[Rfam]
This 90-nucleotide RNA from Pristionchus pacificus belongs to the Rfam family "mir-2232 microRNA precursor family". NCBI's taxonomy places the organism under Eukaryota, Opisthokonta, Eumetazoa, Protostomia, Pristionchus. Gene Ontology terms of the family: miRNA-mediated post-transcriptional gene silencing and RISC complex.
RNA sequence: CGCCCAGCUCGGGAGCGGCUCGCCAUGGUCGCCAUUGACCGAUUUGAUGACGGAUCUAUGACACCUGGGCGAACUGUCCCCUGAGUGGGC
Numbered sequence: 001c002g003c004c005c006a007g008c009u010c011g012g013g014a015g016c017g018g019c020u021c022g023c024c025a026u027g028g029u030c031g032c033c034a035u036u037g038a039c040c041g042a043u044u045u046g047a048u049g050a051c052g053g054a055u056c057u058a059u060g061a062c063a064c065c066u067g068g069g070c071g072a073a074c075u076g077u078c079c080c081c082u083g084a085g086u087g088g089g090c
Base pairs, nucleotide, nucleotide: 003089004088005087006086011081012080013079015077016076017075018074020072021071022070023069027065028064029063037056038055040053043050044049